[Rfam]
RNA sequence: GGAUUUCUUCGGAAAUGGGAAGCUACUCUACUGGCGGUACAGCCCGCGAGCGCAAGCUAAUCCGGUGCAGUUCCGGAGCCAACAGUCAAGUCUGGAUGGGAGAAGAAAAUG
Numbered sequence: 001g002g003a004u005u006u007c008u009u010c011g012g013a014a015a016u017g018g019g020a021a022g023c024u025a026c027u028c029u030a031c032u033g034g035c036g037g038u039a040c041a042g043c044c045c046g047c048g049a050g051c052g053c054a055a056g057c058u059a060a061u062c063c064g065g066u067g068c069a070g071u072u073c074c075g076g077a078g079c080c081a082a083c084a085g086u087c088a089a090g091u092c093u094g095g096a097u098g099g100g101a102g103a104a105g106a107a108a109a110u111g
Base pairs, nucleotide, nucleotide: 004108005107006106007105008104009103010102017028018027019026030091031090032081033080034047035046036045037044042079043078050057051056061077062076063075064074065073083094084093085092
Dot-bracket structure: ...(((((((......(((......))).[[((((((....[[))))..((....))...(((((.......)))))]])).(((....]]))).......)))))))...
This 111-nucleotide RNA from Oscillospiraceae bacterium Marseille-Q3528 belongs to the Rfam family "FMN riboswitch aptamer (RFN element)". Taxonomically the source falls in Oscillospiraceae (Bacteria, Bacillota, Clostridia, Eubacteriales). The RFN element is a highly conserved domain that is found frequently in the 5'-untranslated regions of prokaryotic mRNAs that encode for flavin mononucleotide (FMN) biosynthesis and transport proteins.